mir-301 microRNA precursor family: an 84-nucleotide RNA from Leptobrachium leishanense. NCBI's taxonomy places the organism under Eukaryota, Bilateria, Craniata, Teleostomi, Leptobrachium. Rfam 15.1 lists 1,415 matches to the family in 640 species. Gene Ontology terms of the family: miRNA-mediated post-transcriptional gene silencing and RISC complex.
[Rfam]
RNA sequence: UGCUAUGAAGUGCUCUGACUUUAUUGCACUACUGUACUAUACAGCUAGCAGUGCAAUAGUAUUGUCAAAGCAUCUGGUAGCAGA
Numbered sequence: 001u002g003c004u005a006u007g008a009a010g011u012g013c014u015c016u017g018a019c020u021u022u023a024u025u026g027c028a029c030u031a032c033u034g035u036a037c038u039a040u041a042c043a044g045c046u047a048g049c050a051g052u053g054c055a056a057u058a059g060u061a062u063u064g065u066c067a068a069a070g071c072a073u074c075u076g077g078u079a080g081c082a083g084a
Base pairs, nucleotide, nucleotide: 002081003080004079008075010073011072012071013070014069016067017066018065019064023057024056025055026054027053028052029051030050034042